RNA: mir-9/mir-79 microRNA precursor family
RNA sequence: UGGCUCCUACUUUCGGUUAUCUAGCUUUAUGAUGGAUCAGCAAUACUCAUACAGCUAGAUAACCAAAGAGAGCAGCCA
Numbered sequence: 001u002g003g004c005u006c007c008u009a010c011u012u013u014c015g016g017u018u019a020u021c022u023a024g025c026u027u028u029a030u031g032a033u034g035g036a037u038c039a040g041c042a043a044u045a046c047u048c049a050u051a052c053a054g055c056u057a058g059a060u061a062a063c064c065a066a067a068g069a070g071a072g073c074a075g076c077c078a
Base pairs, nucleotide, nucleotide: 001078002077003076004075005074007072008071011068012067013066015064016063017062018061019060020059021058022057023056024055025054026053028051029050030049031048032047